[Rfam]
RNA sequence: AAAAAUUUGCUCUUUUGGUAUUUGCCCAGUAGGUUUCCUCAAGGAGAAAGCCUCC
Numbered sequence: 001a002a003a004a005a006u007u008u009g010c011u012c013u014u015u016u017g018g019u020a021u022u023u024g025c026c027c028a029g030u031a032g033g034u035u036u037c038c039u040c041a042a043g044g045a046g047a048a049a050g051c052c053u054c055c
Base pairs, nucleotide, nucleotide: 032052033051034050035049036048038046039045040044
Dot-bracket structure: ...............................(((((.(((...))).)))))...
U7 small nuclear RNA: a 55-nucleotide RNA from Hucho hucho. A search with the family's covariance model found it, with a score of 37 bits. The organism belongs to Hucho, within Eukaryota.